Rfam assigns this 521-nucleotide part of an RNA from Meloidogyne artiellia to the family "Eukaryotic large subunit ribosomal RNA". The sequence is in the family's curated seed alignment. Pairs were carried over by alignment from the consensus structure, which is taken from published work.
RNA sequence: CCCUCCGAAGUUUCCCCCAGGAUAGCUGGAGCUCGCGAUGUAGUUAUACUCGGUAAAGCGAAUGAGUAGAGGACUUGGGGACGAAAUGUUCUUAACCUAUUCUCAAACUCUAAAUGGGUAUGAUGUCAUGAGUUGCUUGAUCCCAUCAGUGAACUCUGGCGUUGAAUACUCGAGCUCCAAGUGGGCCAUUUUUGGUAAGCAGAACUGGCGAUGUGGGAUGAACCAAACGCGGGGUUACGGUGCCGAGGUGCCCGCUCAUUAGACCCCAUAAAAGGUGUUGGUUGAUAUAGACAGCAGGACGGUGGCCAUGGAAGUCGGAAUCCGCUAAGGAGUGUGUAACAACUCACCUGCCGAAUCAACUAGCCCUGAAAAUGGAUGGCUCUGGAGGGGCCACCUAUACCUCGCCUCAGGCGGCUUGUAUUUUUUUCUUAAAAAGUCUGGUCUCGACGUGUAGGAGGGUCGUAGUGGUUGCAUUGAAGGCUUUGGGCGUGGGCCCAGCCGGAGCUUCCACUAGUGCAGAU
Number, nucleotide and partner (000 for none) at each position: 001c459002c458003c457004u456005c455006c454007g000008a000009a000010g000011u024012u000013u022014c021015c020016c000017c000018c000019a000020g015021g014022a013023u000024a011025g000026c000027u179028g178029g177030a176031g175032c174033u173034c000035g000036c000037g000038a000039u000040g000041u000042a000043g000044u123045u122046a121047u120048a119049c118050u117051c116052g000053g000054u000055a000056a111057a109058g108059c000060g000061a000062a000063u105064g104065a103066g102067u000068a100069g000070a098071g097072g096073a000074c000075u095076u094077g093078g092079g091080g090081a000082c088083g000084a000085a000086a000087u000088g082089u000090u080091c079092u078093u077094a076095a075096c072097c071098u070099a000100u068101u000102c066103u065104c064105a063106a000107a000108c058109u057110c000111u056112a000113a000114a000115u000116g051117g050118g049119u048120a047121u046122g045123a044124u000125g160126u159127c158128a157129u000130g156131a155132g154133u153134u152135g000136c000137u000138u000139g000140a000141u000142c000143c000144c000145a000146u000147c000148a000149g000150u000151g000152a134153a133154c132155u131156c130157u128158g127159g126160c125161g000162u000163u000164g000165a000166a000167u000168a000169c000170u000171c000172g000173a033174g032175c031176u030177c029178c028179a027180a000181g000182u000183g000184g000185g209186c208187c207188a206189u000190u204191u203192u202193u201194g200195g000196u000197a000198a000199g000200c194201a193202g192203a191204a190205c000206u188207g187208g186209c185210g000211a000212u000213g000214u225215g224216g223217g000218a000219u000220g000221a000222a000223c216224c215225a214226a000227a000228c000229g405230c404231g403232g402233g401234g000235u399236u000237a000238c000239g395240g394241u393242g000243c000244c000245g000246a000247g000248g392249u000250g391251c000252c000253c389254g000255c387256u000257c000258a000259u000260u000261a000262g000263a000264c000265c000266c000267c000268a000269u000270a000271a000272a000273a367274g366275g365276u000277g364278u363279u362280g361281g360282u359283u358284g357285a356286u355287a000288u000289a000290g000291a000292c000293a000294g351295c350296a349297g348298g347299a000300c324301g323302g322303u000304g000305g000306c318307c317308a000309u000310g000311g000312a000313a000314g000315u000316c000317g307318g306319a000320a000321u000322c302323c301324g300325c329326u000327a000328a000329g325330g345331a000332g000333u000334g343335u342336g000337u000338a000339a000340c000341a000342a335343c334344u000345c330346a000347c298348c297349u296350g295351c294352c000353g000354a000355a286356u285357c284358a283359a282360c281361u280362a279363g278364c277365c275366c274367u273368g000369a000370a000371a000372a000373u000374g000375g000376a000377u000378g000379g000380c000381u000382c000383u000384g000385g000386a000387g255388g000389g253390g000391c250392c248393a241394c240395c239396u000397a000398u000399a235400c000401c233402u232403c231404g230405c229406c449407u000408c000409a000410g445411g444412c000413g443414g442415c441416u000417u000418g000419u000420a000421u000422u000423u000424u000425u000426u000427u000428c000429u000430u000431a000432a000433a000434a000435a000436g000437u000438c000439u000440g000441g415442u414443c413444u411445c410446g000447a000448c000449g406450u000451g000452u000453a000454g006455g005456a004457g003458g002459g001460u000461c516462g000463u513464a512465g511466u510467g509468g508469u000470u000471g505472c504473a000474u000475u000476g000477a000478a000479g500480g499481c000482u000483u000484u000485g000486g495487g494488c493489g000490u000491g000492g000493g488494c487495c486496c000497a000498g000499c480500c479501g000502g000503a000504g472505c471506u000507u000508c468509c467510a466511c465512u464513a463514g000515u000516g461517c000518a000519g000520a000521u000
Notes:
Rfam 15.1 lists 107,465 matches to the family in 2,616 species.